This 99-nucleotide sequence from Geotoga petraea belongs to the Rfam family "TPP riboswitch aptamer (THI element)". The family's consensus secondary structure is taken from published work.
RNA sequence: UAAGUGAACCAGGGGAGCCAUAUAGGCUGAGAGGGCAAGAUGCCGACCCUAAAACCUGAUCCGGGUAAUGCCGGCGUAGGAAGCGAAAUCAAAUAUAUA
Numbered sequence: 001u002a003a004g005u006g007a008a009c010c011a012g013g014g015g016a017g018c019c020a021u022a023u024a025g026g027c028u029g030a031g032a033g034g035g036c037a038a039g040a041u042g043c044c045g046a047c048c049c050u051a052a053a054a055c056c057u058g059a060u061c062c063g064g065g066u067a068a069u070g071c072c073g074g075c076g077u078a079g080g081a082a083g084c085g086a087a088a089u090c091a092a093a094u095a096u097a098u099a
Stems, first nucleotide, its partner, number of pairs: 010083001011050004017027003034044004055080004061074004
NCBI's taxonomy places the organism under Bacteria, Thermotogati, Petrotogales, Petrotogaceae, Geotoga. For this family Rfam cites "Comparative genomics of thiamin biosynthesis in procaryotes. New genes and regulatory mechanisms" (Rodionov et al., J Biol Chem, 2002).